A member of the RNA family "SAM-I/IV (S-adenosyl methionine) riboswitch aptamer" from Croceibacter atlanticus, 98 nucleotides long. Taxonomically the source falls in Croceibacter atlanticus (Bacteria, Pseudomonadati, Bacteroidota, Flavobacteriaceae).
RNA sequence: CUUAAUUAUCAAGAAUCUCAAAGAGAGAUAGCAACCUGCAAUAACGAGCAAGGUGCUAAAAUAGAUAAGCCAAAUUCAAUUGGAAAAAAUGUUAAUUC
Numbered sequence: 001c002u003u004a005a006u007u008a009u010c011a012a013g014a015a016u017c018u019c020a021a022a023g024a025g026a027g028a029u030a031g032c033a034a035c036c037u038g039c040a041a042u043a044a045c046g047a048g049c050a051a052g053g054u055g056c057u058a059a060a061a062u063a064g065a066u067a068a069g070c071c072a073a074a075u076u077c078a079a080u081u082g083g084a085a086a087a088a089a090u091g092u093u094a095a096u097u098c
Base pairs, nucleotide, nucleotide: 006068007067008066009065010064015029016028017027018026019025030057031056032055035053036052037051038049039048042095044093070083071082072081073080